[Rfam]
RNA sequence: UUCUCCCUGACGACGGGAACCGUGCUGGUUUCGACUUCGGUAAUAGGUCAAAAUAUAAAAAAUACCUAUCACCGGGUGGAAACUGGUGCGGGUCCCCGAGUCAGUC
Number, nucleotide and partner (000 for none) at each position: 001u000002u000003c000004u000005c000006c000007c000008u000009g000010a000011c000012g000013a000014c000015g096016g095017g094018a093019a000020c091021c090022g000023u088024g087025c086026u085027g084028g083029u082030u081031u080032c079033g000034a077035c076036u075037u000038c074039g000040g072041u071042a000043a069044u068045a067046g066047g065048u000049c000050a000051a000052a000053a000054u000055a000056u000057a000058a000059a000060a000061a000062a000063u000064a000065c047066c046067u045068a044069u043070c000071a041072c040073c000074g038075g036076g035077u034078g000079g032080a031081a030082a029083c028084u027085g026086g025087u024088g023089c000090g021091g020092g000093u018094c017095c016096c015097c000098g000099a000100g000101u000102c000103a000104g000105u000106c000

Rfam assigns this 106-nucleotide sequence from Caenorhabditis remanei to the family "mir-36 microRNA precursor family". The match comes from Rfam's covariance-model search (62 bits).